A member of the RNA family "Small nucleolar RNA R32/R81/Z41" from Corymbia citriodora, 94 nucleotides long. For this family Rfam cites "Identification of 66 box C/D snoRNAs in Arabidopsis thaliana: extensive gene duplications generated multiple isoforms predicting new ribosomal RNA 2'-O-methylation sites" (Barneche et al., J Mol Biol, 2001). The family's consensus secondary structure was predicted with PFOLD.
Nucleotides: 094
Base pairs, nucleotide, nucleotide: 004091005090006089007088
Number, partner (000 for none) and nucleotide at each position: 001000c002000c003000a004091u005090g006089a007088a008000c009000a010000u011000g012000a013000u014000g015000a016000g017000a018000g019000u020000a021000a022000c023000a024000u025000u026000g027000c028000g029000a030000g031000u032000g033000a034000u035000g036000a037000u038000a039000a040000a041000a042000u043000c044000u045000u046000a047000u048000c049000a050000g051000g052000u053000g054000a055000u056000g057000a058000u059000a060000a061000a062000a063000u064000a065000u066000u067000a068000c069000u070000u071000c072000g073000c074000u075000a076000c077000g078000u079000u080000c081000u082000u083000u084000c085000u086000g087000a088007u089006u090005c091004a092000u093000g094000g